RNA sequence: GUUAUUGCGCCGUUCAUCGCAACGCCCUAUAUCGGUGGAGCCGGUUUCGGCCGGCUAUGGCGAUAAAUUGUUGCGUGCAAUAAGCGCAGCGGACCCGGGGGCAGUACCCGGCGGCUCCACCAGAAAUCGCGCGAAAGCGGGGUUCCCGAUGGGGCCGAACCAGGAUCGACGUGUGUUCAAAAGCGCAGUUUUUGCCCGGGCUGAGUAACCCGUUAAAGGCUCAAAACCCAUAAGUGCCAACGAUAACGAAGCACUUGCUCUUGCAGCGUAAUUGAUGGGCUAACGCCCUGAUAUUACACUAACAGAACGCGGCUUGGACCGAGCCGGGCAACAGGAUCGGAAACC
Numbered sequence: 001g002u003u004a005u006u007g008c009g010c011c012g013u014u015c016a017u018c019g020c021a022a023c024g025c026c027c028u029a030u031a032u033c034g035g036u037g038g039a040g041c042c043g044g045u046u047u048c049g050g051c052c053g054g055c056u057a058u059g060g061c062g063a064u065a066a067a068u069u070g071u072u073g074c075g076u077g078c079a080a081u082a083a084g085c086g087c088a089g090c091g092g093a094c095c096c097g098g099g100g101g102c103a104g105u106a107c108c109c110g111g112c113g114g115c116u117c118c119a120c121c122a123g124a125a126a127u128c129g130c131g132c133g134a135a136a137g138c139g140g141g142g143u144u145c146c147c148g149a150u151g152g153g154g155c156c157g158a159a160c161c162a163g164g165a166u167c168g169a170c171g172u173g174u175g176u177u178c179a180a181a182a183g184c185g186c187a188g189u190u191u192u193u194g195c196c197c198g199g200g201c202u203g204a205g206u207a208a209c210c211c212g213u214u215a216a217a218g219g220c221u222c223a224a225a226a227c228c229c230a231u232a233a234g235u236g237c238c239a240a241c242g243a244u245a246a247c248g249a250a251g252c253a254c255u256u257g258c259u260c261u262u263g264c265a266g267c268g269u270a271a272u273u274g275a276u277g278g279g280c281u282a283a284c285g286c287c288c289u290g291a292u293a294u295u296a297c298a299c300u301a302a303c304a305g306a307a308c309g310c311g312g313c314u315u316g317g318a319c320c321g322a323g324c325c326g327g328g329c330a331a332c333a334g335g336a337u338c339g340g341a342a343a344c345c
Stems, first nucleotide, its partner, number of pairs: 040055005059196005070189007085175003089172003095111005112157007197212004202223003310326004319339001321337001

Alphaproteobacteria transfer-messenger RNA: a 345-nucleotide RNA sequence from Flavisphingopyxis soli. Rfam links the family to the GO term RNA catabolic process. From the family's description: Bacterial tmRNA, also known as 10Sa RNA or SsrA, is named for its dual tRNA and mRNA-like properties. The family's consensus secondary structure is taken from published work. Taxonomically the source falls in Flavisphingopyxis (Bacteria, Pseudomonadati, Pseudomonadota, Sphingopyxidaceae).